Overview
Rfam assigns this 346-nucleotide RNA from Roseburia sp. CAG:303 to the family "Bacterial RNase P class A". Lineage of the source: Bacteria > Bacillota > Lachnospirales > Lachnospiraceae > Roseburia. The match comes from Rfam's covariance-model search (312 bits). The family is grouped with related families in Rfam's "RNaseP clan".
RNA sequence: UGAGUAGAACAGAUGAUCGCGGCUGCGAUGCCGAAAGGCAGCAGGUGAGGAAAGUCCGGGCUUCGCAGGGCAGGAUGCCGGAUAACGUCCGGUGGAGGUGACUCCCAGGAAAGUGCAACAGAAAUAAACCGCCGGCUUUUGCCGGUAAGGGUGGAAAGGCAGUGUAAGAGACUACCGCAUGGCUGGUAACAGACAUGGCUCUGUAAACCCCAUCCGAAGCAAGACCGAAUAAGAAAGUGGAUUGCCCGUCCUUACUUUCGGGUAGGUCGCUUGAGUCUGGUGGCAACGUCAGAUCUAGAUAGAUGAUCAUCUGAUACAUAACCCGGCUUACAGUUCUACUCAUAUA
Numbered sequence: 001u002g003a004g005u006a007g008a009a010c011a012g013a014u015g016a017u018c019g020c021g022g023c024u025g026c027g028a029u030g031c032c033g034a035a036a037g038g039c040a041g042c043a044g045g046u047g048a049g050g051a052a053a054g055u056c057c058g059g060g061c062u063u064c065g066c067a068g069g070g071c072a073g074g075a076u077g078c079c080g081g082a083u084a085a086c087g088u089c090c091g092g093u094g095g096a097g098g099u100g101a102c103u104c105c106c107a108g109g110a111a112a113g114u115g116c117a118a119c120a121g122a123a124a125u126a127a128a129c130c131g132c133c134g135g136c137u138u139u140u141g142c143c144g145g146u147a148a149g150g151g152u153g154g155a156a157a158g159g160c161a162g163u164g165u166a167a168g169a170g171a172c173u174a175c176c177g178c179a180u181g182g183c184u185g186g187u188a189a190c191a192g193a194c195a196u197g198g199c200u201c202u203g204u205a206a207a208c209c210c211c212a213u214c215c216g217a218a219g220c221a222a223g224a225c226c227g228a229a230u231a232a233g234a235a236a237g238u239g240g241a242u243u244g245c246c247c248g249u250c251c252u253u254a255c256u257u258u259c260g261g262g263u264a265g266g267u268c269g270c271u272u273g274a275g276u277c278u279g280g281u282g283g284c285a286a287c288g289u290c291a292g293a294u295c296u297a298g299a300u301a302g303a304u305g306a307u308c309a310u311c312u313g314a315u316a317c318a319u320a321a322c323c324c325g326g327c328u329u330a331c332a333g334u335u336c337u338a339c340u341c342a343u344a345u346a
Base pairs, nucleotide, nucleotide: 001342002341003340004339005338006337007336008335009334010333012311013310014309015308016307017306018305020047021046023044024043025042026041052329053328054327056326057325058324059323060322061219062218063217064216068247069246070245071244073215074214075213076212077211078092079091080090081089082088093107094105095104096103097102108210109209113208114207115204116203117202129150130149131146132145133144134143135142136141158176159175161173162172163171177199178197179196180195181194183192184191185190223268224267225266226265233259234258235257236256237255239251240250241249242248275294276293277292278291279290280289281288282287